The family of this 83-nucleotide RNA from Catagonus wagneri is "small Cajal body-specific RNA 18". Pairs were carried over by alignment from the consensus structure, which was predicted with PFOLD. The family has 20 seed sequences and 406 matches in Rfam 15.1. From the family's description: scaRNAs are a specific class of small nuclear RNAs which localise to the Cajal bodies and guide the modification of RNA polymerase II transcribed spliceosomal RNAs U1, U2, U4, U5 and U12. This C/D box domain U91 (also known as U4-8) was identified by Darzacq and is predicted to guide the 2'O-ribose methylation of U4 snRNA C8. NCBI's taxonomy places the organism under Eukaryota, Bilateria, Sarcopterygii, Laurasiatheria, Catagonus. By type it is a small Cajal body RNA.
RNA sequence: UGGUUGAUGACGAUGUGAAAACUGUGCAAUCUGAGUUCUGGAAGCUAGAUGCUGGAGUGUGUGCUGACAACAGACUGACACCA
Numbered sequence: 001u002g003g004u005u006g007a008u009g010a011c012g013a014u015g016u017g018a019a020a021a022c023u024g025u026g027c028a029a030u031c032u033g034a035g036u037u038c039u040g041g042a043a044g045c046u047a048g049a050u051g052c053u054g055g056a057g058u059g060u061g062u063g064c065u066g067a068c069a070a071c072a073g074a075c076u077g078a079c080a081c082c083a
Base pairs, nucleotide, nucleotide: 002082003081004080038048039047040046041045